This 97-nucleotide RNA from Arsukibacterium sp. MJ3 belongs to the Rfam family "Bacterial small signal recognition particle RNA".
Its family is annotated with signal recognition particle, plasma membrane targeting and SRP-dependent cotranslational protein targeting to membrane, signal sequence recognition in the Gene Ontology.
A reference for the family is Rosenblad et al. (2003), "SRPDB: Signal Recognition Particle Database", Nucleic Acids Res.
Pairs were carried over by alignment from the consensus structure, which is taken from published work.
The family's RNA type in Rfam is non-coding RNA gene.
From the family's description: The signal recognition particle (SRP) is a universally conserved ribonucleoprotein involved in the co-translational targeting of proteins to membranes.
It scores 68 bits against the family's covariance model.
The organism belongs to Arsukibacterium, within Bacteria.
RNA sequence: CAUUGGUCCUCUCGCAAUGCUAGUAGGUUAACUUGGUCAGGUCCGGAAGGAAGCAGCCACAGCUUAUGAUGCAGGUGCCGGGAUGUGGCUGGUGGAG
Numbered sequence: 001c002a003u004u005g006g007u008c009c010u011c012u013c014g015c016a017a018u019g020c021u022a023g024u025a026g027g028u029u030a031a032c033u034u035g036g037u038c039a040g041g042u043c044c045g046g047a048a049g050g051a052a053g054c055a056g057c058c059a060c061a062g063c064u065u066a067u068g069a070u071g072c073a074g075g076u077g078c079c080g081g082g083a084u085g086u087g088g089c090u091g092g093u094g095g096a097g
Base pairs, nucleotide, nucleotide: 004091005090006089007088008087010083011082012081013080014079015075018073019072020071023067024066025065026064027063028062029061034059035058036057037056042051043050044049